[Rfam]
RNA: Nitrogen stress-induced RNA 1
Organism: Calothrix sp. C42_A2020_038
RNA sequence: UGGUAGAUGCACCCUAAUAACUCACUCCCCUAGUGGACUGCCAUCUGCUAGGGGCUUUCUAU
Numbered sequence: 001u002g003g004u005a006g007a008u009g010c011a012c013c014c015u016a017a018u019a020a021c022u023c024a025c026u027c028c029c030c031u032a033g034u035g036g037a038c039u040g041c042c043a044u045c046u047g048c049u050a051g052g053g054g055c056u057u058u059c060u061a062u
Stems, first nucleotide, its partner, number of pairs: 002013003027054011